[Rfam]
RNA: Small nucleolar RNA SNORD20
RNA sequence: UGGAUGUGAUGAAUUUCAGUCUGACAAACAUGAUGAAACCUUUUUGAACAAUUCCUCUAGAUAGUCAAGUGCUGAUCCAG
Numbered sequence: 001u002g003g004a005u006g007u008g009a010u011g012a013a014u015u016u017c018a019g020u021c022u023g024a025c026a027a028a029c030a031u032g033a034u035g036a037a038a039c040c041u042u043u044u045u046g047a048a049c050a051a052u053u054c055c056u057c058u059a060g061a062u063a064g065u066c067a068a069g070u071g072c073u074g075a076u077c078c079a080g
Stems, first nucleotide, its partner, number of pairs: 001079004
Dot-bracket structure: ((((.......................................................................)))).